[Rfam]
RNA: SAM riboswitch aptamer (S box leader)
Organism: Fictibacillus enclensis
RNA sequence: UUCUUAUCCAGAGAGGUUAAGGGAAUGGCCCGUUGACACCUCAGCAACCUUCAGCGAUUACGAGCUGAAAAGGUGCUAAGUCCAACAAGUUCGAUUGCAGAACUUGAAAGAUAAGAA
Numbered sequence: 001u002u003c004u005u006a007u008c009c010a011g012a013g014a015g016g017u018u019a020a021g022g023g024a025a026u027g028g029c030c031c032g033u034u035g036a037c038a039c040c041u042c043a044g045c046a047a048c049c050u051u052c053a054g055c056g057a058u059u060a061c062g063a064g065c066u067g068a069a070a071a072g073g074u075g076c077u078a079a080g081u082c083c084a085a086c087a088a089g090u091u092c093g094a095u096u097g098c099a100g101a102a103c104u105u106g107a108a109a110g111a112u113a114a115g116a117a
Stems, first nucleotide, its partner, number of pairs: 001117008013042005021031003026084003043077004048073002050069006081109001086106006